[Rfam]
RNA sequence: GUGGGAGCUGUAAACAUCCCUGACUGGAAGCUGGGAGCACUUGCUGCGGCAGCUUUCGCCCGGAUGUUUGCUGCUGCCAU
Numbered sequence: 001g002u003g004g005g006a007g008c009u010g011u012a013a014a015c016a017u018c019c020c021u022g023a024c025u026g027g028a029a030g031c032u033g034g035g036a037g038c039a040c041u042u043g044c045u046g047c048g049g050c051a052g053c054u055u056u057c058g059c060c061c062g063g064a065u066g067u068u069u070g071c072u073g074c075u076g077c078c079a080u
Stems, first nucleotide, its partner, number of pairs: 002079003006075001008073001010071010025058009
About this RNA:
A member of the RNA family "mir-30 microRNA precursor family" from Petromyzon marinus, 80 nucleotides long. Rfam describes the family as follows. This family consists of the mammalian microRNA (miRNA) precursor mir-30a. Animal miRNAs are transcribed as ~70nt precursors and subsequently processed by the Dicer enzyme to give a ~22nt product. In this case the mature sequence comes from both the 3' (miR-30) and 5' (mir-97-6) arms of the precursor. The extents of the hairpin precursors are not generally known and are estimated based on hairpin prediction. The organism belongs to Petromyzon, within Eukaryota.